[Rfam]
RNA sequence: GGAAAAUUCAGAAUGAAGCGAGCGGCUGAUGAACUAAGUUCUAGGCUUUUCACAGUUGAAAAGCCUAGAACUUAGUUCAUCAGCCGCUCGCUUCAUUCUGAAUUUU
Numbered sequence: 001g002g003a004a005a006a007u008u009c010a011g012a013a014u015g016a017a018g019c020g021a022g023c024g025g026c027u028g029a030u031g032a033a034c035u036a037a038g039u040u041c042u043a044g045g046c047u048u049u050u051c052a053c054a055g056u057u058g059a060a061a062a063g064c065c066u067a068g069a070a071c072u073u074a075g076u077u078c079a080u081c082a083g084c085c086g087c088u089c090g091c092u093u094c095a096u097u098c099u100g101a102a103u104u105u106u
Stems, first nucleotide, its partner, number of pairs: 006103006013096016030079003
Dot-bracket structure: .....((((((.((((((((((((((((.(((............................................))).)))))))))))))))).))))))...
MIR397 microRNA precursor family: a 106-nucleotide sequence from Candidula unifasciata. For this family Rfam cites "Rice MicroRNA effector complexes and targets" (Wu et al., Plant Cell, 2009). The source organism's lineage runs through Eukaryota, Spiralia, Panpulmonata, Geomitridae and Candidula. Gene Ontology terms of the family: RISC complex and miRNA-mediated post-transcriptional gene silencing. Rfam 15.1 lists 496 matches to the family in 218 species.